[Rfam]
RNA sequence: GCACAAAGCAGGUGACAAUAACGCCACAUCGUGUGGCAUUGUCACCAUGACCAACAUCGUGUUGG
Numbered sequence: 001g002c003a004c005a006a007a008g009c010a011g012g013u014g015a016c017a018a019u020a021a022c023g024c025c026a027c028a029u030c031g032u033g034u035g036g037c038a039u040u041g042u043c044a045c046c047a048u049g050a051c052c053a054a055c056a057u058c059g060u061g062u063u064g065g
Stems, first nucleotide, its partner, number of pairs: 011046006023037005051065005
The record is a 65-nucleotide sequence from Lysinibacillus telephonicus, which matches "Bacillaceae-1 RNA" in Rfam. It is annotated as a small RNA.